[Rfam]
RNA sequence: ACCCCGUUGCCAACACUCUGGCCCUGACCGCUCUCUUCGGAUUGCCACCUAUGGUCAUGGCCUAUUUUGGUGCAACGGAGAGGAACUGGCCCGUUACUCACCGCGGCGGCCUUGCCAAUGGCCGUCGUGGUCCUUUUUUUGAGGUCUACAU
Numbered sequence: 001a002c003c004c005c006g007u008u009g010c011c012a013a014c015a016c017u018c019u020g021g022c023c024c025u026g027a028c029c030g031c032u033c034u035c036u037u038c039g040g041a042u043u044g045c046c047a048c049c050u051a052u053g054g055u056c057a058u059g060g061c062c063u064a065u066u067u068u069g070g071u072g073c074a075a076c077g078g079a080g081a082g083g084a085a086c087u088g089g090c091c092c093g094u095u096a097c098u099c100a101c102c103g104c105g106g107c108g109g110c111c112u113u114g115c116c117a118a119u120g121g122c123c124g125u126c127g128u129g130g131u132c133c134u135u136u137u138u139u140u141g142a143g144g145u146c147u148a149c150a151u
Base pairs, nucleotide, nucleotide: 007075008074009073020062021061022060023059026056027055028054029053088146089145090144091143101130102129103128104127106125107124108123109122110121111120

Shown here is a 151-nucleotide sequence from Trichodelitschia bisporula, a member of the family "Small nucleolar RNA snR80".
The family's RNA type in Rfam is H/ACA-box small nucleolar RNA.
Taxonomically the source falls in Trichodelitschia (Eukaryota, leotiomyceta, dothideomyceta, Dothideomycetes).
Its Rfam clan is "SNORA28 clan".
Its family is annotated with RNA processing and nucleolus in the Gene Ontology.